[Rfam]
RNA sequence: AUGGUAAAGAUCUAGCAGCGAGGUAUGGAGCUCCUACGUUGCUAUAAAUAAGUAGGAACUUCAUACCGUGCUCUUGGACUUAUCCGAU
Numbered sequence: 001a002u003g004g005u006a007a008a009g010a011u012c013u014a015g016c017a018g019c020g021a022g023g024u025a026u027g028g029a030g031c032u033c034c035u036a037c038g039u040u041g042c043u044a045u046a047a048a049u050a051a052g053u054a055g056g057a058a059c060u061u062c063a064u065a066c067c068g069u070g071c072u073c074u075u076g077g078a079c080u081u082a083u084c085c086g087a088u
Stems, first nucleotide, its partner, number of pairs: 012077003017072004022067005028061003032057006
The record is an 88-nucleotide RNA sequence from Aphidius gifuensis, which matches "mir-276 microRNA precursor family" in Rfam.
The family has 42 seed sequences and 200 matches in Rfam 15.1.
Rfam links the family to the GO terms RISC complex and miRNA-mediated post-transcriptional gene silencing.